[Rfam]
RNA sequence: CCGGUCGUAUGCCAAACCAUUCGAGAGGGUGGGACGGAAAGCCAAGGAUCUCUGGUACCAAAAAUGAGACAGCCUGGUUGCAAGC
Numbered sequence: 001c002c003g004g005u006c007g008u009a010u011g012c013c014a015a016a017c018c019a020u021u022c023g024a025g026a027g028g029g030u031g032g033g034a035c036g037g038a039a040a041g042c043c044a045a046g047g048a049u050c051u052c053u054g055g056u057a058c059c060a061a062a063a064a065u066g067a068g069a070c071a072g073c074c075u076g077g078u079u080g081c082a083a084g085c
Base pairs, nucleotide, nucleotide: 012037013036017032018031019030020029021028022027040079041078042077043076045075046074047073049069050068056063
The family of this 85-nucleotide RNA sequence from Marinobacter sp. AC-23 is "c-di-GMP-I riboswitch aptamer". Lineage of the source: Bacteria > Pseudomonadati > Pseudomonadales > Marinobacteraceae > Marinobacter.